[Rfam]
RNA sequence: UUGGAAGUGAAUUGAUUUAUGUUUGGAUACACUUUACUAGAAGUGAUUCUUACGAAUUGAUGUUGUUUGGAUAG
Numbered sequence: 001u002u003g004g005a006a007g008u009g010a011a012u013u014g015a016u017u018u019a020u021g022u023u024u025g026g027a028u029a030c031a032c033u034u035u036a037c038u039a040g041a042a043g044u045g046a047u048u049c050u051u052a053c054g055a056a057u058u059g060a061u062g063u064u065g066u067u068u069g070g071a072u073a074g
Stems, first nucleotide, its partner, number of pairs: 011061008021053002025049004030045005
This 74-nucleotide RNA sequence from Medicago truncatula belongs to the Rfam family "MIR5272 microRNA precursor family". Rfam links the family to the GO terms miRNA-mediated post-transcriptional gene silencing and RISC complex. Lineage of the source: Eukaryota > Streptophyta > Fabaceae > Hologalegina > Medicago.